Shown here is a 91-nucleotide RNA from Tripterygium wilfordii, a member of the family "Small nucleolar RNA snoR100".
The base pairs follow the family's consensus structure, which was predicted with WAR.
NCBI's taxonomy places the organism under Eukaryota, Viridiplantae, eudicotyledons, Celastraceae, Tripterygium.
A reference for the family is Marker et al. (2002), "Experimental RNomics: identification of 140 candidates for small non-messenger RNAs in the plant Arabidopsis thaliana", Curr Biol.
Rfam classes the family as an H/ACA-box small nucleolar RNA.

[Rfam]
RNA sequence: GAAGGAAGGUAAGCAUGGUAAUGUACAAAGAAAUUGAAGGGUCAACAUGUCUUGUCUCUCUGAUUUGAGGGCCUGGUUUGGUCUUUCUUCA
Numbered sequence: 001g002a003a004g005g006a007a008g009g010u011a012a013g014c015a016u017g018g019u020a021a022u023g024u025a026c027a028a029a030g031a032a033a034u035u036g037a038a039g040g041g042u043c044a045a046c047a048u049g050u051c052u053u054g055u056c057u058c059u060c061u062g063a064u065u066u067g068a069g070g071g072c073c074u075g076g077u078u079u080g081g082u083c084u085u086u087c088u089u090c091a
Base pairs, nucleotide, nucleotide: 013026015024016023039074040073041072042071043070049064050063051062